[Rfam]
RNA sequence: CCCCCAAGGGGAAGCGAAGACCCUAUAGAGCUUUACUGCAGGCUGUCGCUGAGACGUGGUCGCCAUUGUGCAGCAUAGGUAGGAGCCGUUACACAGGUACCCGCGCUAGCGGGCCACCGAGGCAUCAUUGAAAUACUACCCGAUGGUGACUGCGACUCUCACUCCUGGCGGAGGACACCGGUAGCCGGGCAGUUUGACUGGGGCGGUACGCGCUCGAAAAGAUAUCGAGCGCGCCCCAAGGUUUCCUCAUCCGGGUCGGACACCCGGAAAAGAGCGCAAGAGCAAAAGGAAGCCUGACAGUGUUCUUCAUAACACGGAACGCUGACGCGAAAGCGUGGUCUAGCGAACCAAUUAGCCUGCUUGAUGCGGGCAAUUGCUGACAGAAAAGCUACCUUAGGGAUAACAGAGUCGUCACCGGCAAGAGCACAUAUCGACCCGGUGGCUUGCUACCUCGAUGUCGGUUCCCUCCAUCCUGCCCGUGCAGAAUCGGGCAAGGGUGAGGUUGUUCGCCUAUUAAAGGAGGUCGUGAGCUGGGUUUAGACCGUCGUGAGACAGGUCGGCUGCUAUCUAUUGGGGGUGUUU
Dot-bracket structure: (((((((..(((.((......((((.(((((((.((((...(((((((..(((.((((((((((((((.........(((((..(((............(((((....))))).......)))............))))))))))))))))))).)))...((((....)))).....)))))))....))))..((((.....))).)((((((...........))))))..((....((((((((.((((((.......))))))...))((......))....))))))....(((((((((.........))))))))).(.(....).).))..........(((((.(((((.......)))))))))).........)))))..))))))........(((.((((((((...((.......))...)))))))..))))..........(((((((((((..((..((((........))))....))..((((.....))))......)))))..)..)))).).....(((((((....))).))))....))..))).))))))).....

Shown here is a 582-nucleotide part of an RNA from Halalkalicoccus jeotgali, a member of the family "Archaeal large subunit ribosomal RNA". The sequence is in the family's curated seed alignment.